[Rfam]
RNA: Small nucleolar RNA U49
Organism: Rhododendron simsii
RNA sequence: UCCCUAUGAGGAAGCAUUCCCAUUCGAUAGGAAGUGCCGUAUGACACUUUACACCGGCGGUGCA
Numbered sequence: 001u002c003c004c005u006a007u008g009a010g011g012a013a014g015c016a017u018u019c020c021c022a023u024u025c026g027a028u029a030g031g032a033a034g035u036g037c038c039g040u041a042u043g044a045c046a047c048u049u050u051a052c053a054c055c056g057g058c059g060g061u062g063c064a
Stems, first nucleotide, its partner, number of pairs: 014058002031050006